Glycine riboswitch aptamer: a 101-nucleotide sequence from Actinokineospora bangkokensis. Taxonomically the source falls in Actinokineospora (Bacteria, Bacillati, Actinomycetota, Pseudonocardiales). It scores 70 bits against the family's covariance model.

[Rfam]
RNA sequence: AGACCCCGUGCGGGAGAGACCGGAGGGCCCACCAGCCACUCCGGCGCCGAAGGAGCAACCCCUCCCCGGAACCUCUCAGGCAAACGGACCGCACGGGUGAG
Numbered sequence: 001a002g003a004c005c006c007c008g009u010g011c012g013g014g015a016g017a018g019a020c021c022g023g024a025g026g027g028c029c030c031a032c033c034a035g036c037c038a039c040u041c042c043g044g045c046g047c048c049g050a051a052g053g054a055g056c057a058a059c060c061c062c063u064c065c066c067c068g069g070a071a072c073c074u075c076u077c078a079g080g081c082a083a084a085c086g087g088a089c090c091g092c093a094c095g096g097g098u099g100a101g
Stems, first nucleotide, its partner, number of pairs: 006096008020044006046081003049077002053075003059069002